[Rfam]
Shown here is a 228-nucleotide RNA from Streptomyces sp. SID8379, a member of the family "Actinobacteria sRNA Ms_IGR-5". A reference for the family is Li et al. (2013), "Identification of small RNAs in Mycobacterium smegmatis using heterologous Hfq", RNA. Rfam classes the family as a small RNA. NCBI's taxonomy places the organism under Bacteria, Actinomycetes, Kitasatosporales, Streptomycetaceae, Streptomyces.
RNA sequence: ACAGGCUGAAAGGAGGUGGUUCGGAGCAUGUAUGCACACCGGACGUCUGAGGUGACUGCGGGCUAGCGGCCCGACGUCGCAUCUCGAAUUCGGCGCUGGACCAGCACGUGCUGUGUACGUGCGGCCGGCCCAAUCCCAAGCAGUCACCCGACCCGCGAGCUGCCGGUACGUCCGGCCGGCUUCCGACCGUCUCGUACGGGAGGAACCACAGCUCGCGGGUCGUCUGCG
Dot-bracket structure: ...............(((((..................................))))).((((.((.((.(.(((.....................................)))..).)).)).))))..................(((((((((((((((((((.......)))))).............................)))))))))))))......